[Rfam]
RNA sequence: GAUCUGGCUCCACGCGGUCGUAACGCCCAAACCUUGUCAGGACUGGAAGGUAGCAGCAACACGGGAUGCUUAUAACAGGCGUGGUAUCCGGGUCACA
Numbered sequence: 001g002a003u004c005u006g007g008c009u010c011c012a013c014g015c016g017g018u019c020g021u022a023a024c025g026c027c028c029a030a031a032c033c034u035u036g037u038c039a040g041g042a043c044u045g046g047a048a049g050g051u052a053g054c055a056g057c058a059a060c061a062c063g064g065g066a067u068g069c070u071u072a073u074a075a076c077a078g079g080c081g082u083g084g085u086a087u088c089c090g091g092g093u094c095a096c097a
Base pairs, nucleotide, nucleotide: 003092004091005090006089007088010084011083012082013081014080017076018075020073021072022071026065027064028063034059035058036057037056042051043050044049